Description:
Rfam assigns this 51-nucleotide RNA from Paucimonas lemoignei to the family "Guanidine-II riboswitch aptamer (mini-ykkC)". The match comes from Rfam's covariance-model search (35 bits). Pairs were carried over by alignment from the consensus structure, which is taken from published work.
[Rfam]
RNA sequence: AUAGGAGGACGACCUCCCCCGUUUUUGGGAAUACAGUCCGGGACGGCCCGG
Numbered sequence: 001a002u003a004g005g006a007g008g009a010c011g012a013c014c015u016c017c018c019c020c021g022u023u024u025u026u027g028g029g030a031a032u033a034c035a036g037u038c039c040g041g042g043a044c045g046g047c048c049c050g051g
Base pairs, nucleotide, nucleotide: 004017005016006015007014008013038051039050040049041048042047